[Rfam]
RNA: MIR5269 microRNA precursor family
RNA sequence: UUGGUUUAAAUCAUUGUGAGUUUACAUUUUGAAAAUUGAAUCCAUAAAAAGUGGUGAGACAUACUUUGAUUUCAUCCAA
Numbered sequence: 001u002u003g004g005u006u007u008a009a010a011u012c013a014u015u016g017u018g019a020g021u022u023u024a025c026a027u028u029u030u031g032a033a034a035a036u037u038g039a040a041u042c043c044a045u046a047a048a049a050a051g052u053g054g055u056g057a058g059a060c061a062u063a064c065u066u067u068g069a070u071u072u073c074a075u076c077c078a079a
Base pairs, nucleotide, nucleotide: 001079002078003077004076006074008072009071010070011069012068013067016064017063018062022057023056024055025053026052027051028050029049030048